[Rfam]
Source information
This 134-nucleotide RNA from Rhinolophus ferrumequinum belongs to the Rfam family "Small nucleolar RNA SNORA70". A search with the family's covariance model found it, with a score of 73 bits. The family's RNA type in Rfam is H/ACA-box small nucleolar RNA. Gene Ontology terms of the family: nucleolus and RNA processing. Lineage of the source: Eukaryota > Eutheria > Boreoeutheria > Laurasiatheria > Rhinolophus. snoRNA U70 seems to be exclusive to mammals and is a member of the H/ACA class of snoRNA which contain H (ANANNA) and ACA box motifs. H/ACA box snoRNAs are involved in the conversion of uridines to pseudouridines (5-ribosyluracil) a constituent of structural RNAs (transfer, ribosomal, small nuclear, and small nucleolar).

RNA sequence: CUACAGCCAGUGAAUCUGGCCAUGCGCUUUUCCUUGCAGCGGCCUCGUGUGUAAUUGCUGUGAACAGCACCCUCCUUGUUAGUGCAUGCAGCCUGCUGCAGAUACUGUUACCCUAAAGGACCUUAGAGAUAGCC
Numbered sequence: 001c002u003a004c005a006g007c008c009a010g011u012g013a014a015u016c017u018g019g020c021c022a023u024g025c026g027c028u029u030u031u032c033c034u035u036g037c038a039g040c041g042g043c044c045u046c047g048u049g050u051g052u053a054a055u056u057g058c059u060g061u062g063a064a065c066a067g068c069a070c071c072c073u074c075c076u077u078g079u080u081a082g083u084g085c086a087u088g089c090a091g092c093c094u095g096c097u098g099c100a101g102a103u104a105c106u107g108u109u110a111c112c113c114u115a116a117a118g119g120a121c122c123u124u125a126g127a128g129a130u131a132g133c134c
Base pairs, nucleotide, nucleotide: 002053003052004051005050019048020047022045025041026040027039028038078122080120090109091108092107
Dot-bracket structure: .((((.............((.(..((((.........))))...).)).))))........................(.(.........(((..............)))..........).)............